Notes: This 134-nucleotide RNA sequence from Cavia porcellus belongs to the Rfam family "Small nucleolar RNA SNORA40". The family's consensus secondary structure was predicted with RNAalifold. Rfam links the family to the GO terms nucleolus and RNA processing. A search with the family's covariance model found it, with a score of 96 bits.
[Rfam]
RNA sequence: GGCACUUGAGUAUGUUUUUUGUCUUAACUUGGUGGACUGAAAACUUACUGAACAGGUACAAAAAAUAAAAACCUCUUUUGCAACGUAGAACUCAUUGUUCAGUAUGAGUUUUGAUACAUAUAAGAAGGAAUAUU
Numbered sequence: 001g002g003c004a005c006u007u008g009a010g011u012a013u014g015u016u017u018u019u020u021g022u023c024u025u026a027a028c029u030u031g032g033u034g035g036a037c038u039g040a041a042a043a044c045u046u047a048c049u050g051a052a053c054a055g056g057u058a059c060a061a062a063a064a065a066u067a068a069a070a071a072c073c074u075c076u077u078u079u080g081c082a083a084c085g086u087a088g089a090a091c092u093c094a095u096u097g098u099u100c101a102g103u104a105u106g107a108g109u110u111u112u113g114a115u116a117c118a119u120a121u122a123a124g125a126a127g128g129a130a131u132a133u134u
Stems, first nucleotide, its partner, number of pairs: 002059001004057005011050001014044006021037001028034001070131001073128002076125005086113010
Dot-bracket structure: .(.(((((..(..((((((.(......(.....)..).)))))).....)..))))).)..........(..((.(((((.....((((((((((........)))))))))).......))))).))..)...